Notes: A member of the RNA family "Small nucleolar RNA SNORA73 family" from Dipodomys ordii, 204 nucleotides long. U17 (SNORA73A and SNORA73B) also known as E1 belongs to the H/ACA class of small nucleolar RNAs (snoRNAs). The family is grouped with related families in Rfam's "snR30-U17 clan". Gene Ontology terms of the family: RNA processing and nucleolus. A search with the family's covariance model found it, with a score of 193 bits. The source organism's lineage runs through Eukaryota, Craniata, Euteleostomi, Boreoeutheria and Dipodomys.
[Rfam]
RNA sequence: CCAACAUGGACACCCCGGGAGGUCCCUCCCCCCGGGCUCUGUCCUUGUGGUCUAGCGGAGCAUAGGGCUCUGCCUAAUGAUGUAUAGUCCCUUUCCACAGUGUUGGAUAUGAAACCGGGCUUUGUGUCUGCGCCUGCAUAUUCCUACAGCUUCCCAGAGUCCUGUGGACAAUGACUGGGGAGAUAAACCAUGCAGGAAACAGUG
Numbered sequence: 001c002c003a004a005c006a007u008g009g010a011c012a013c014c015c016c017g018g019g020a021g022g023u024c025c026c027u028c029c030c031c032c033c034g035g036g037c038u039c040u041g042u043c044c045u046u047g048u049g050g051u052c053u054a055g056c057g058g059a060g061c062a063u064a065g066g067g068c069u070c071u072g073c074c075u076a077a078u079g080a081u082g083u084a085u086a087g088u089c090c091c092u093u094u095c096c097a098c099a100g101u102g103u104u105g106g107a108u109a110u111g112a113a114a115c116c117g118g119g120c121u122u123u124g125u126g127u128c129u130g131c132g133c134c135u136g137c138a139u140a141u142u143c144c145u146a147c148a149g150c151u152u153c154c155c156a157g158a159g160u161c162c163u164g165u166g167g168a169c170a171a172u173g174a175c176u177g178g179g180g181a182g183a184u185a186a187a188c189c190a191u192g193c194a195g196g197a198a199a200c201a202g203u204g
Stems, first nucleotide, its partner, number of pairs: 001106007008044005014036003018029004047098004057090003060085001062083003065078001133196007150182006159169004